[Rfam]
RNA sequence: CAAUGUAAAUAGACGAAAACGUGUAUAUGCUGACAUAACGGGUCAGUGUCUCUACCUUGUCACCAAUGGCAAGACUAUGUGUUUUUAUAGGUAUCGU
Numbered sequence: 001c002a003a004u005g006u007a008a009a010u011a012g013a014c015g016a017a018a019a020c021g022u023g024u025a026u027a028u029g030c031u032g033a034c035a036u037a038a039c040g041g042g043u044c045a046g047u048g049u050c051u052c053u054a055c056c057u058u059g060u061c062a063c064c065a066a067u068g069g070c071a072a073g074a075c076u077a078u079g080u081g082u083u084u085u086u087a088u089a090g091g092u093a094u095c096g097u
Stems, first nucleotide, its partner, number of pairs: 018083008030046005056073007

Notes: This 97-nucleotide RNA belongs to the Rfam family "Purine riboswitch aptamer". Gene Ontology term of the family: purine nucleobase biosynthetic process.